[Rfam]
RNA sequence: ACGCUCACGAUGCGGAAUGGGUUCUCCAGCCGGGCACCUCUCCGGAUACGCUGACGGCGUGCAUCCCCAUACACCGGAGGGGACGCAUAGCCGACAGCCGUCGCACCCAGGGAGCAGCCCCAUG
Dot-bracket structure: ...........................................................(((..((((..........))))..)))..((.(((....)))))....................
Numbered sequence: 001a002c003g004c005u006c007a008c009g010a011u012g013c014g015g016a017a018u019g020g021g022u023u024c025u026c027c028a029g030c031c032g033g034g035c036a037c038c039u040c041u042c043c044g045g046a047u048a049c050g051c052u053g054a055c056g057g058c059g060u061g062c063a064u065c066c067c068c069a070u071a072c073a074c075c076g077g078a079g080g081g082g083a084c085g086c087a088u089a090g091c092c093g094a095c096a097g098c099c100g101u102c103g104c105a106c107c108c109a110g111g112g113a114g115c116a117g118c119c120c121c122a123u124g
Stems, first nucleotide, its partner, number of pairs: 060087003065082004090104002093102003

About this RNA
A member of the RNA family "Streptomyces-metH RNA" from Saccharothrix sp. ST-888, 124 nucleotides long. The base pairs follow the family's consensus structure, which is taken from published work. A search with the family's covariance model found it, with a score of 83 bits.